[Rfam]
RNA sequence: UUCUCCCUGCGCUGUUGGUGCAAGCCUUAGGUGUUUUGAGCCAACACCUUUUUUGAGGGAGUUCGACGUCGCGGUUGCGCGCACAUGCCACUCACUUGUUGUCAGUGGACUUGCAAGCAAACUGCGCAGGACACCCACCUGCGAGAGCAGGUUCAAAACGGAAGGUUUCACGGCAGGUGCGGGGUAGCC
Numbered sequence: 001u002u003c004u005c006c007c008u009g010c011g012c013u014g015u016u017g018g019u020g021c022a023a024g025c026c027u028u029a030g031g032u033g034u035u036u037u038g039a040g041c042c043a044a045c046a047c048c049u050u051u052u053u054u055g056a057g058g059g060a061g062u063u064c065g066a067c068g069u070c071g072c073g074g075u076u077g078c079g080c081g082c083a084c085a086u087g088c089c090a091c092u093c094a095c096u097u098g099u100u101g102u103c104a105g106u107g108g109a110c111u112u113g114c115a116a117g118c119a120a121a122c123u124g125c126g127c128a129g130g131a132c133a134c135c136c137a138c139c140u141g142c143g144a145g146a147g148c149a150g151g152u153u154c155a156a157a158a159c160g161g162a163a164g165g166u167u168u169c170a171c172g173g174c175a176g177g178u179g180c181g182g183g184g185u186a187g188c189c
Stems, first nucleotide, its partner, number of pairs: 002187001005184007012176004018171002032160004037155006057136003061132004070126007081114002088108005
Dot-bracket structure: .(..(((((((((((..((............((((.((((((..............(((.((((.....(((((((....((.....(((((...........)))))....)).....)))))))..)))).))).............)))))).)))).........)).)))).)))))))..)..

A member of the RNA family "6S / SsrS RNA" from Paenalicyclobacillus mengziensis, 189 nucleotides long. By type it is a non-coding RNA gene. From the family's description: E. coli 6S RNA was the first non coding RNA to be sequenced, but its function was unknown until recently. The match comes from Rfam's covariance-model search (92 bits). The family's consensus secondary structure is taken from published work. The literature on the family includes a 2017 paper in Molecular Cell by Chen et al., "6S RNA Mimics B-Form DNA to Regulate Escherichia coli RNA Polymerase".